[Rfam]
RNA sequence: CAGACGGUUGAUUCGUCCCGGUGCAGGAAGCGCGCGGACAUAAGGAAACGGAACCAAGCGGGAAAAGCCCGGUCGGGAUGGCGAAGC
Numbered sequence: 001c002a003g004a005c006g007g008u009u010g011a012u013u014c015g016u017c018c019c020g021g022u023g024c025a026g027g028a029a030g031c032g033c034g035c036g037g038a039c040a041u042a043a044g045g046a047a048a049c050g051g052a053a054c055c056a057a058g059c060g061g062g063a064a065a066a067g068c069c070c071g072g073u074c075g076g077g078a079u080g081g082c083g084a085a086g087c
Base pairs, nucleotide, nucleotide: 001023002022006019007018054076055075057073059071060070061069
The family of this 87-nucleotide RNA sequence is "RAGATH-28 RNA".